[Rfam]
The family of this 133-nucleotide sequence from Atrichornis clamosus is "Small nucleolar RNA SNORA13". Rfam describes the family as follows. ACA13 is a member of the H/ACA class of snoRNA that guide the sites of modification of uridines to pseudouridines. Rfam classes the family as an H/ACA-box small nucleolar RNA. Rfam 15.1 lists 1,034 matches to the family in 605 species.
RNA sequence: GGCCUUUGUGUUGCCCAUUCAUUCCUGUCCAGAAUGAAUGUGGUGUCAAAAAAGGCAAACAGGAAUUCUUGCUCAAACUGUUUUAGGGAACUGGUUCUUUACCUUUCUCCUCCUUGUUUUUGCAAGAACAAAA
Number, nucleotide and partner (000 for none) at each position: 001g000002g056003c055004c054005u053006u052007u051008g000009u048010g047011u000012u045013g044014c043015c042016c040017a039018u038019u037020c036021a035022u034023u033024c000025c000026u000027g000028u000029c000030c000031a000032g000033a023034a022035u021036g020037a019038a018039u017040g016041u000042g015043g014044u013045g012046u000047c010048a009049a000050a000051a007052a006053a005054g004055g003056c002057a000058a000059a000060c000061a000062g000063g000064a000065a000066u000067u000068c126069u125070u124071g123072c000073u000074c122075a121076a120077a119078c000079u000080g000081u000082u116083u000084u000085a000086g112087g111088g109089a108090a000091c000092u000093g104094g103095u000096u000097c000098u000099u000100u000101a000102c000103c094104u093105u000106u000107c000108u089109c088110c000111u087112c086113c000114u000115u000116g082117u000118u000119u077120u076121u075122g074123c071124a070125a069126g068127a000128a000129c000130a000131a000132a000133a000